[Rfam]
Shown here is a 375-nucleotide RNA from Propionivibrio dicarboxylicus, a member of the family "Bacterial RNase P class A". The family's consensus secondary structure is taken from published work. Lineage of the source: Bacteria > Pseudomonadota > Rhodocyclales > Rhodocyclaceae > Propionivibrio.
RNA sequence: GAAGUCGGUCAGGCAACCGCUGCGUGCUUCGGCACGGGGAGGAAAGUCCGGGCUUCAUAGAGCAGGAUGCCGGCUAACGGCCGGGCGCUAUACGCCGCAAGGCAAAGGCGACGGAAAGUGCAACAGAGAACAGACCGCCGAUGGCUCAUGCAGGCAACUGCGGGCACAGGCAAGGGUGAAACGGCGAGGUAAGAGCUCACCGCGGACGUGGUAACACGGACGGCACGGCAAACCCCAUCCGAAGCAAGGCCAAAUAGGGAAGCAUUCGGCGUGGCUCGCGUCGCUUCCGGGUAGGCUGCUUGAGCGGCUCGGCAACGGGUCGCCUAGAGGAAUGGUUGCCCACGACAGAACCCGGCUUAUCGACCGGCUUCCCAA
Numbered sequence: 001g002a003a004g005u006c007g008g009u010c011a012g013g014c015a016a017c018c019g020c021u022g023c024g025u026g027c028u029u030c031g032g033c034a035c036g037g038g039g040a041g042g043a044a045a046g047u048c049c050g051g052g053c054u055u056c057a058u059a060g061a062g063c064a065g066g067a068u069g070c071c072g073g074c075u076a077a078c079g080g081c082c083g084g085g086c087g088c089u090a091u092a093c094g095c096c097g098c099a100a101g102g103c104a105a106a107g108g109c110g111a112c113g114g115a116a117a118g119u120g121c122a123a124c125a126g127a128g129a130a131c132a133g134a135c136c137g138c139c140g141a142u143g144g145c146u147c148a149u150g151c152a153g154g155c156a157a158c159u160g161c162g163g164g165c166a167c168a169g170g171c172a173a174g175g176g177u178g179a180a181a182c183g184g185c186g187a188g189g190u191a192a193g194a195g196c197u198c199a200c201c202g203c204g205g206a207c208g209u210g211g212u213a214a215c216a217c218g219g220a221c222g223g224c225a226c227g228g229c230a231a232a233c234c235c236c237a238u239c240c241g242a243a244g245c246a247a248g249g250c251c252a253a254a255u256a257g258g259g260a261a262g263c264a265u266u267c268g269g270c271g272u273g274g275c276u277c278g279c280g281u282c283g284c285u286u287c288c289g290g291g292u293a294g295g296c297u298g299c300u301u302g303a304g305c306g307g308c309u310c311g312g313c314a315a316c317g318g319g320u321c322g323c324c325u326a327g328a329g330g331a332a333u334g335g336u337u338g339c340c341c342a343c344g345a346c347a348g349a350a351c352c353c354g355g356c357u358u359a360u361c362g363a364c365c366g367g368c369u370u371c372c373c374a375a
Stems, first nucleotide, its partner, number of pairs: 001371010011360001012340007020039002023036005044358003048355005053244004060277004065240005070084005085112001086110004113235002118233002120229002135175002137171003142166002145163001183201002186198003202224001203222002207218004248297004258288006268282005304323008

Ribonuclease P (RNase P) is a ubiquitous endoribonuclease, found in archaea, bacteria and eukarya as well as chloroplasts and mitochondria.